[Rfam]
RNA sequence: ACGCUCCACGCAUGCCUGCUGACUGAAGUCAGCGACAUGCCAGGCAACCUUUGGUCUUCGAGGUUGCGCGCAGCCGCCAGGCUGCGUGACCGAGCCAGUUCGCAUCGCAUCCUCGCGCGAACGGCCACUGGACCCCGGUGGCGAUGC
Numbered sequence: 001a002c003g004c005u006c007c008a009c010g011c012a013u014g015c016c017u018g019c020u021g022a023c024u025g026a027a028g029u030c031a032g033c034g035a036c037a038u039g040c041c042a043g044g045c046a047a048c049c050u051u052u053g054g055u056c057u058u059c060g061a062g063g064u065u066g067c068g069c070g071c072a073g074c075c076g077c078c079a080g081g082c083u084g085c086g087u088g089a090c091c092g093a094g095c096c097a098g099u100u101c102g103c104a105u106c107g108c109a110u111c112c113u114c115g116c117g118c119g120a121a122c123g124g125c126c127a128c129u130g131g132a133c134c135c136c137g138g139u140g141g142c143g144a145u146g147c
Base pairs, nucleotide, nucleotide: 011039012038013037014036015034018033019032020031021030022029023028044067045066046065047064048063049062053091054090055089056088068087069086070085071084072083073082074081075080117147118146119145124142125141126140127139128138129137130136131135
Rfam assigns this 147-nucleotide sequence from Paracidovorax citrulli to the family "radC RNA". It is annotated as a cis-regulatory element. Rfam 15.1 lists 500 matches to the family in 142 species.